[Rfam]
RNA sequence: CCGCCCGUCACAUCAGGGAAGUUGAUUAUUUUUAAAAUAAUUCUUAAUUAUUUAAUAUAAUUACUUAAUUAUUUAAUUAUAUUUGUUUAUAAUUUAUAUUAAAUAACUUAAAAUUCCUAAAAAGUGAUUAGUAACUUUGAUGAAGUCGUAACAAGGUAGUCGUAGGGGAACCUGUGUCUGGAAGAGAUCUUUA
Numbered sequence: 001c002c003g004c005c006c007g008u009c010a011c012a013u014c015a016g017g018g019a020a021g022u023u024g025a026u027u028a029u030u031u032u033u034a035a036a037a038u039a040a041u042u043c044u045u046a047a048u049u050a051u052u053u054a055a056u057a058u059a060a061u062u063a064c065u066u067a068a069u070u071a072u073u074u075a076a077u078u079a080u081a082u083u084u085g086u087u088u089a090u091a092a093u094u095u096a097u098a099u100u101a102a103a104u105a106a107c108u109u110a111a112a113a114u115u116c117c118u119a120a121a122a123a124g125u126g127a128u129u130a131g132u133a134a135c136u137u138u139g140a141u142g143a144a145g146u147c148g149u150a151a152c153a154a155g156g157u158a159g160u161c162g163u164a165g166g167g168g169a170a171c172c173u174g175u176g177u178c179u180g181g182a183a184g185a186g187a188u189c190u191u192u193a
Stems, first nucleotide, its partner, number of pairs: 001155001003152001006148002011142008021132012039115004044111004157180003161176006
Rfam assigns this 193-nucleotide part of an RNA to the family "Bacterial small subunit ribosomal RNA". For this family Rfam cites "Crystal structure of the ribosome at 5.5 A resolution" (Yusupov et al., Science, 2001). The family's consensus secondary structure is taken from published work.